[Rfam]
Nucleotides: 070
Base pairs, nucleotide, nucleotide: 007064008063009062011060012059013058014057016055017054018053020051021050022049023048026040027039028038
Number, partner (000 for none) and nucleotide at each position: 001000u002000u003000g004000c005000c006000a007064g008063u009062c010000g011060g012059g013058c014057u015000a016055u017054g018053g019000c020051u021050a022049u023048a024000g025000c026040c027039c028038a029000g030000a031000u032000c033000u034000c035000a036000g037000g038028u039027g040026g041000a042000u043000c044000u045000g046000g047000a048023u049022a050021u051020a052000a053018c054017c055016a056000a057014a058013g059012c060011c061000u062009g063008a064007c065000u066000g067000u068000a069000c070000a